RNA: Rhizobiales sRNA Atu_C9
Organism: Rhizobium sp. BG4
RNA sequence: CGUUAACGCAAAGGAGGCAGACAUGGGUAUCACACGAUCCUUGAAUGUCCUGUUGGUCAGUGCAGCGUUCGCGUUCGUCUUGUCUAUGCUCUUCAUCUGAGCGGCAAACCGGACCCUAUGACUGGAAUACCGGACUCCUGAGUGAACAGUUCAGCAAACUAAAAAAGCGCAUGUCCCGCCUGACAUGCGCUUU
Numbered sequence: 001c002g003u004u005a006a007c008g009c010a011a012a013g014g015a016g017g018c019a020g021a022c023a024u025g026g027g028u029a030u031c032a033c034a035c036g037a038u039c040c041u042u043g044a045a046u047g048u049c050c051u052g053u054u055g056g057u058c059a060g061u062g063c064a065g066c067g068u069u070c071g072c073g074u075u076c077g078u079c080u081u082g083u084c085u086a087u088g089c090u091c092u093u094c095a096u097c098u099g100a101g102c103g104g105c106a107a108a109c110c111g112g113a114c115c116c117u118a119u120g121a122c123u124g125g126a127a128u129a130c131c132g133g134a135c136u137c138c139u140g141a142g143u144g145a146a147c148a149g150u151u152c153a154g155c156a157a158a159c160u161a162a163a164a165a166a167g168c169g170c171a172u173g174u175c176c177c178g179c180c181u182g183a184c185a186u187g188c189g190c191u192u193u
Stems, first nucleotide, its partner, number of pairs: 016049004025041003164193012